[Rfam]
A member of the RNA family "c-di-AMP riboswitch aptamer (ydaO/yuaA leader)" from Actinomadura hallensis, 164 nucleotides long. It scores 65 bits against the family's covariance model.
RNA sequence: GGCACGUCACCGCCGAGUCCGCGGCGGCCCGCGCCCCCGCGCGGCGUACGCGGAGCCGGGGACCCACCAGUUCAUCGGGGUGAAUCGGCCUGCCCGUCGGGCCGUAGGGCGGCUUCCACGCCCGAACCCGUCAGCUAACCCGGUAGGCGGCAUGGAAGUCAGGA
Numbered sequence: 001g002g003c004a005c006g007u008c009a010c011c012g013c014c015g016a017g018u019c020c021g022c023g024g025c026g027g028c029c030c031g032c033g034c035c036c037c038c039g040c041g042c043g044g045c046g047u048a049c050g051c052g053g054a055g056c057c058g059g060g061g062a063c064c065c066a067c068c069a070g071u072u073c074a075u076c077g078g079g080g081u082g083a084a085u086c087g088g089c090c091u092g093c094c095c096g097u098c099g100g101g102c103c104g105u106a107g108g109g110c111g112g113c114u115u116c117c118a119c120g121c122c123c124g125a126a127c128c129c130g131u132c133a134g135c136u137a138a139c140c141c142g143g144u145a146g147g148c149g150g151c152a153u154g155g156a157a158g159u160c161a162g163g164a
Base pairs, nucleotide, nucleotide: 011149012148013147014146018054019053020052021051022050023049055144056143057142058141059140060139065077078129079128080127086104087103088102089101107123108122109121110120
Rfam describes the family as follows. This family represents a conserved RNA structure found upstream of the ydaO and yuaA genes in Bacillus subtilis and related genes in other bacteria.
NCBI's taxonomy places the organism under Bacteria, Bacillati, Actinomycetota, Actinomycetes, Actinomadura.